A member of the RNA family "Bacterial RNase P class A" from Sinimarinibacterium flocculans, 395 nucleotides long.
The organism belongs to Sinimarinibacterium, within Bacteria.
The match comes from Rfam's covariance-model search (294 bits).
Rfam classes the family as a ribozyme.

RNA sequence: GGAGUCGGCCGGGCAGCCGCCGCCGCAGCAAUGCGGGGGAGGAAAGUCCGGGCUCCGCAGGGCAGGGUGCCAGGUAACGCCUGGGCGGCGCGAGCCGACGGAAAGUGCAACAGAGAGCAGACCGCCGAUGGCCCCGACACGACGUGUCAGGGCACAGGCAAGGGUGAAACGGUGCGGUAAGAGCGCACCGCGAGUCCGGCAACGGACCGGCACGGCAAACCCCACCUGGAGCAAGACCAAAUAGGGAAGGUGUACGGCUCGUCCGUACGACGCGUGGCCCGCGUGCCUUCCGGGUAGGUUGCUGGAGCGCGGCGGUGACGCCGCGCCUAGAGGAAUGGCUGCCGUGGGCGCGCAAGCGUCCGGCACAGAACCCGGCUUACAGGCCGGCUCCCACC
Numbered sequence: 001g002g003a004g005u006c007g008g009c010c011g012g013g014c015a016g017c018c019g020c021c022g023c024c025g026c027a028g029c030a031a032u033g034c035g036g037g038g039g040a041g042g043a044a045a046g047u048c049c050g051g052g053c054u055c056c057g058c059a060g061g062g063c064a065g066g067g068u069g070c071c072a073g074g075u076a077a078c079g080c081c082u083g084g085g086c087g088g089c090g091c092g093a094g095c096c097g098a099c100g101g102a103a104a105g106u107g108c109a110a111c112a113g114a115g116a117g118c119a120g121a122c123c124g125c126c127g128a129u130g131g132c133c134c135c136g137a138c139a140c141g142a143c144g145u146g147u148c149a150g151g152g153c154a155c156a157g158g159c160a161a162g163g164g165u166g167a168a169a170c171g172g173u174g175c176g177g178u179a180a181g182a183g184c185g186c187a188c189c190g191c192g193a194g195u196c197c198g199g200c201a202a203c204g205g206a207c208c209g210g211c212a213c214g215g216c217a218a219a220c221c222c223c224a225c226c227u228g229g230a231g232c233a234a235g236a237c238c239a240a241a242u243a244g245g246g247a248a249g250g251u252g253u254a255c256g257g258c259u260c261g262u263c264c265g266u267a268c269g270a271c272g273c274g275u276g277g278c279c280c281g282c283g284u285g286c287c288u289u290c291c292g293g294g295u296a297g298g299u300u301g302c303u304g305g306a307g308c309g310c311g312g313c314g315g316u317g318a319c320g321c322c323g324c325g326c327c328u329a330g331a332g333g334a335a336u337g338g339c340u341g342c343c344g345u346g347g348g349c350g351c352g353c354a355a356g357c358g359u360c361c362g363g364c365a366c367a368g369a370a371c372c373c374g375g376c377u378u379a380c381a382g383g384c385c386g387g388c389u390c391c392c393a394c395c
Stems, first nucleotide, its partner, number of pairs: 001391010011380001012343007020039002023036005044378003048375005053231004060279002063276001065227005070084005085099001086097004100222002105220002107216002122163002124159003129154002132151001171189006190211001191209002194207005235300004245291006270284005307326008